[Rfam]
RNA sequence: AUAAGCUCCCGGACAGCGUCUGGGCGUCUGGUAAGCUCGCCUGUCGAGACGCACAAACAUUGGACGAGGCAACAGGUAUAAGCCACCGGUGUACGCGCCGGAGCGCGAAUGCCUGUUAGGAGUGCGGGAGUGCGAUGCGCGAAGUAACCCGCAGCUUAU
Numbered sequence: 001a002u003a004a005g006c007u008c009c010c011g012g013a014c015a016g017c018g019u020c021u022g023g024g025c026g027u028c029u030g031g032u033a034a035g036c037u038c039g040c041c042u043g044u045c046g047a048g049a050c051g052c053a054c055a056a057a058c059a060u061u062g063g064a065c066g067a068g069g070c071a072a073c074a075g076g077u078a079u080a081a082g083c084c085a086c087c088g089g090u091g092u093a094c095g096c097g098c099c100g101g102a103g104c105g106c107g108a109a110u111g112c113c114u115g116u117u118a119g120g121a122g123u124g125c126g127g128g129a130g131u132g133c134g135a136u137g138c139g140c141g142a143a144g145u146a147a148c149c150c151g152c153a154g155c156u157u158a159u
Stems, first nucleotide, its partner, number of pairs: 001159007008068001010066002015061002018058002021055002024052006031044003035040001072116008082106002084103001088099004119150002123146003130140004

This 159-nucleotide RNA from Blautia hydrogenotrophica belongs to the Rfam family "Clostridiales-1 RNA". Rfam classes the family as a small RNA.